This 94-nucleotide RNA sequence from Azoarcus olearius belongs to the Rfam family "Glycine riboswitch aptamer". The literature on the family includes a 2017 paper in MBio by Babina et al., "In Vivo Behavior of the Tandem Glycine Riboswitch in Bacillus subtilis". A search with the family's covariance model found it, with a score of 61 bits. Lineage of the source: Bacteria > Pseudomonadota > Betaproteobacteria > Rhodocyclales > Azoarcus. Rfam's curators write: This family represents the bacterial glycine riboswitch.
RNA sequence: GCGGGUCGCGCGGGAGAGUGUUCGAUGACAGCAUCGGACCGCCGAAGGCGUAACCCCCAGGAAUCGCUCAGGCACAAGGGACCGCGCGAACGCA
Dot-bracket structure: .....((((((((......((((............)))).(((((..(((...((....))...))))).)))........)))))))).....